[Rfam]
RNA sequence: AACCAGUGAUGUAAUGAUUCUGCCAAGUGAAUGUUAAAACCAUUCCAUUUUGAUACUGAGGUU
Numbered sequence: 001a002a003c004c005a006g007u008g009a010u011g012u013a014a015u016g017a018u019u020c021u022g023c024c025a026a027g028u029g030a031a032u033g034u035u036a037a038a039a040c041c042a043u044u045c046c047a048u049u050u051u052g053a054u055a056c057u058g059a060g061g062u063u
Stems, first nucleotide, its partner, number of pairs: 001063004

Rfam assigns this 63-nucleotide sequence from Ictidomys tridecemlineatus to the family "Small nucleolar RNA SNORD47". By type it is a C/D-box small nucleolar RNA. The family's consensus secondary structure was predicted with ILM.